Rfam assigns this 357-nucleotide sequence from Parvularcula maris to the family "Alphaproteobacteria transfer-messenger RNA".

RNA sequence: GGUCUGGUCAAACCGAGCUCCCGCCCCUAUAUGAACAGGGCUGCUUCGGCAGAUAUGACGAUAAAUGGCGUUCGUAAUAAGCGGACUGGACCCGGGGGCGGUACCCGGCGGCUCCACCAGAGGCCCUGCGGAAGCGGGGGUUCCGGCGGGGCCGACAUAGCAUCGACAGACGUGUAAAGGCUCUGCUUUCGUUCGGAUGGUCUCCGUCAUUGGACCGUUUUGAUAGUUGCAAACGACAACUACGAUGAAGGUUUCGCUCUCGCUGCGUAGCAGCGCGGGAAAACCGACCUUAAAGCCCUAGUGCCUUAUCAGCGCUAGGCGGGGCCGCCGGGGGCCUGGCAACAGAACCCCGGCACU
Number, nucleotide and partner (000 for none) at each position: 001g000002g000003u000004c000005u000006g000007g000008u000009c000010a000011a000012a000013c000014c000015g000016a000017g000018c000019u000020c000021c000022c000023g000024c000025c000026c000027c000028u000029a000030u000031a000032u000033g000034a000035a000036c000037a000038g000039g000040g000041c052042u051043g050044c049045u000046u000047c000048g000049g044050c043051a042052g041053a000054u000055a000056u000057g193058a192059c191060g190061a189062u000063a000064a000065a000066u000067g186068g000069c000070g183071u000072u000073c180074g000075u000076a000077a000078u000079a000080a000081g000082c172083g171084g000085a000086c169087u168088g167089g000090a000091c000092c108093c107094g106095g105096g104097g000098g000099c000100g000101g000102u000103a000104c096105c095106c094107g093108g092109c154110g153111g152112c151113u150114c149115c148116a000117c000118c000119a000120g000121a000122g000123g000124c000125c000126c000127u000128g000129c000130g000131g000132a000133a000134g000135c000136g000137g000138g000139g000140g000141u000142u000143c000144c000145g000146g000147c000148g115149g114150g113151g112152c111153c110154g109155a000156c000157a000158u000159a000160g000161c000162a000163u000164c000165g000166a000167c088168a087169g086170a000171c083172g082173u000174g000175u000176a000177a000178a000179g000180g073181c000182u000183c070184u000185g000186c067187u000188u000189u061190c060191g059192u058193u057194c206195g205196g204197a203198u000199g000200g215201u213202c212203u197204c196205c195206g194207u000208c000209a000210u000211u000212g202213g201214a000215c200216c000217g000218u000219u000220u000221u000222g000223a000224u000225a000226g000227u000228u000229g000230c000231a000232a000233a000234c000235g000236a000237c000238a000239a000240c000241u000242a000243c000244g000245a000246u000247g000248a000249a000250g000251g000252u000253u000254u000255c000256g000257c000258u000259c000260u000261c000262g000263c000264u000265g000266c000267g000268u000269a000270g000271c000272a000273g000274c000275g000276c000277g000278g000279g000280a000281a000282a000283a000284c000285c000286g000287a000288c000289c000290u000291u000292a000293a000294a000295g000296c000297c000298c000299u000300a000301g000302u000303g000304c000305c000306u000307u000308a000309u000310c000311a000312g000313c000314g000315c000316u000317a000318g000319g000320c000321g000322g337323g336324g335325c334326c000327g000328c000329c353330g000331g351332g350333g349334g325335c324336c323337u322338g000339g000340c000341a000342a000343c000344a000345g000346a000347a000348c000349c333350c332351c331352g000353g329354c000355a000356c000357u000

By type it is a non-coding RNA gene. The match comes from Rfam's covariance-model search (237 bits).